[Rfam]
RNA sequence: CUGCGCCUGCGGAGGACGCAGCACCUCCCACACCAGCGCAGUGCCUUGCAGGCGGCCGGGUGGUGUACCGUCUCGUGAACCGCAAUUUUGCGGAUUCAAAUUCCUUCC
Number, nucleotide and partner (000 for none) at each position: 001c000002u000003g000004c000005g053006c052007c051008u050009g049010c048011g047012g000013a000014g073015g072016a000017c070018g069019c000020a000021g066022c065023a064024c063025c062026u000027c060028c059029c000030a000031c000032a000033c000034c000035a000036g000037c000038g000039c000040a000041g057042u000043g056044c055045c054046u000047u011048g010049c009050a008051g007052g006053c005054g045055g044056c043057c041058g000059g028060g027061u000062g025063g024064u023065g022066u021067a000068c000069c018070g017071u000072c015073u014074c000075g000076u000077g000078a000079a000080c093081c092082g091083c090084a089085a000086u000087u000088u000089u084090g083091c082092g081093g080094a000095u000096u000097c000098a000099a000100a000101u000102u000103c000104c000105u000106u000107c000108c000
Shown here is a 108-nucleotide sequence, a member of the family "RT-5 RNA". The family's RNA type in Rfam is small RNA.